Rfam assigns this 106-nucleotide RNA sequence from Riemerella columbipharyngis to the family "Bacteroidales small SRP". The base pairs follow the family's consensus structure, which is taken from published work.
RNA sequence: UUUGCACCGGCAAGUCCUAAACAACCAGCUCCUGAAAAUCCUCCAGGGUGGGAACACAGCAAAGGUAAUUGGUUGUAGCGGUGUGAUUUAGGUAGCUUGCCUUUUU
Dot-bracket structure: ........(((((((.(((((((((.......................................................)).)).)))))...))))))).....
Numbered sequence: 001u002u003u004g005c006a007c008c009g010g011c012a013a014g015u016c017c018u019a020a021a022c023a024a025c026c027a028g029c030u031c032c033u034g035a036a037a038a039u040c041c042u043c044c045a046g047g048g049u050g051g052g053a054a055c056a057c058a059g060c061a062a063a064g065g066u067a068a069u070u071g072g073u074u075g076u077a078g079c080g081g082u083g084u085g086a087u088u089u090a091g092g093u094a095g096c097u098u099g100c101c102u103u104u105u106u
Stems, first nucleotide, its partner, number of pairs: 009101007017091005022085002024082002